[Rfam]
RNA sequence: AUUACCGGACUCACAAAACCCAACCGCAGGUGAGAUUGGUGCGUCUGUCCGGGUCGGGGCGUGUAAGCCGCCCAACCUCAUCCCGCUCGCUUGCCGAGCAGGGAGUGCUAGCGCACGGCUGAGGGAAUUACAAAAGCCUCGGGCCACCGUGCCCGAGGUUGUUUACGGCGAGCUGUCAGUAUUACU
Number, nucleotide and partner (000 for none) at each position: 001a000002u000003u000004a000005c052006c051007g050008g049009a048010c047011u000012c000013a044014c043015a000016a000017a000018a000019c000020c039021c038022a037023a036024c000025c034026g000027c000028a000029g000030g000031u000032g000033a000034g025035a000036u023037u022038g021039g020040u000041g000042c000043g014044u013045c000046u000047g010048u009049c008050c007051g006052g005053g076054u075055c000056g000057g073058g072059g071060c070061g069062u067063g000064u000065a000066a000067g062068c000069c061070g060071c059072c058073c057074a000075a054076c053077c000078u000079c000080a000081u000082c000083c000084c000085g000086c000087u184088c000089g182090c000091u179092u178093g177094c000095c175096g173097a000098g000099c170100a000101g000102g169103g000104a000105g166106u165107g164108c000109u121110a120111g119112c118113g000114c000115a000116c000117g000118g112119c111120u110121g109122a000123g000124g000125g000126a000127a000128u000129u000130a000131c000132a000133a000134a000135a160136g159137c158138c157139u156140c155141g154142g153143g152144c151145c000146a000147c000148c000149g000150u000151g144152c143153c142154c141155g140156a139157g138158g137159u136160u135161g000162u000163u000164u107165a106166c105167g000168g000169c102170g099171a000172g000173c096174u000175g095176u000177c093178a092179g091180u000181a000182u089183u000184a087185c000186u000
The record is a 186-nucleotide RNA from Natronobacterium lacisalsi, which matches "Sense overlapping transcript RNA 2652 (sot)" in Rfam. The family's consensus secondary structure was predicted with RNAfold. Rfam describes the family as follows. It is associated with IS1341-type transposase (tnpB) genes, at the 3'-end in H. salinarum NRC-1. The tetraloop structural motif may be functional. Taxonomically the source falls in Natronobacterium lacisalsi (Archaea, Methanobacteriota, Halobacteria, Halobacteriales). Rfam 15.1 lists 37 matches to the family in 25 species. For this family Rfam cites "Sense overlapping transcripts in IS1341-type transposase genes are functional non-coding RNAs in archaea" (Gomes-Filho et al., RNA Biol, 2015).